[Rfam]
Rfam assigns this 107-nucleotide RNA from Carya illinoinensis to the family "Plant small nucleolar RNA R71".
The match comes from Rfam's covariance-model search (53 bits).
The literature on the family includes a 2003 paper in Trends Plant Sci by Brown et al., "Plant snoRNAs: functional evolution and new modes of gene expression".
RNA sequence: UAUCCAUGUUGUGGGCAACGUCAAACCAAGUCUUUAUACCUCUCCCAAGCUUCAUAGAGUGACUCAAAAUCAUUUUGCUUGAACUGGCCAAUCUCACUCCUGAGUUG
Numbered sequence: 001u002a003u004c005c006a007u008g009u010u011g012u013g014g015g016c017a018a019c020g021u022c023a024a025a026c027c028a029a030g031u032c033u034u035u036a037u038a039c040c041u042c043u044c045c046c047a048a049g050c051u052u053c054a055u056a057g058a059g060u061g062a063c064u065c066a067a068a069a070u071c072a073u074u075u076u077g078c079u080u081g082a083a084c085u086g087g088c089c090a091a092u093c094u095c096a097c098u099c100c101u102g103a104g105u106u107g
Base pairs, nucleotide, nucleotide: 001107004104005102006101057074058073